Notes
This 174-nucleotide RNA from Halobacterium salinarum belongs to the Rfam family "Sense overlapping transcript RNA 0042 (sot)". Lineage of the source: Archaea > Methanobacteriota > Halobacteriaceae > Halobacterium > Halobacterium salinarum NRC-34001. Rfam's curators put it in the seed alignment. Pairs were carried over by alignment from the consensus structure, which was predicted with RNAfold. The literature on the family includes a 2015 paper in RNA Biol by Gomes-Filho et al., "Sense overlapping transcripts in IS1341-type transposase genes are functional non-coding RNAs in archaea". The family has 2 seed sequences and 196 matches in Rfam 15.1. From the family's description: It is associated with IS1341-type transposase (tnpB) genes, at the 3'-end in H. salinarum NRC-1. The tetraloop structural motif may be functional.
RNA sequence: ACGUAUCUCCGAGUCCCGUCACGGAUGGCGGUGAUAGGAGUAACGGCUGGUUGGCACAGCCAUCGACGUUCCUGUUUGACAAUGAAACUGGUGCGUUCGCACCUCAAGAACAGGCUACGUCGUAAACCAUAAUAUCCCAACGCGGUCGGGAAUCCUCGCCCUUCAGGGCGGGGA
Numbered sequence: 001a002c003g004u005a006u007c008u009c010c011g012a013g014u015c016c017c018g019u020c021a022c023g024g025a026u027g028g029c030g031g032u033g034a035u036a037g038g039a040g041u042a043a044c045g046g047c048u049g050g051u052u053g054g055c056a057c058a059g060c061c062a063u064c065g066a067c068g069u070u071c072c073u074g075u076u077u078g079a080c081a082a083u084g085a086a087a088c089u090g091g092u093g094c095g096u097u098c099g100c101a102c103c104u105c106a107a108g109a110a111c112a113g114g115c116u117a118c119g120u121c122g123u124a125a126a127c128c129a130u131a132a133u134a135u136c137c138c139a140a141c142g143c144g145g146u147c148g149g150g151a152a153u154c155c156u157c158g159c160c161c162u163u164c165a166g167g168g169c170g171g172g173g174a
Stems, first nucleotide, its partner, number of pairs: 003044002007040004013035003016031006045061005064122006071114007090103005135151004140146002153174009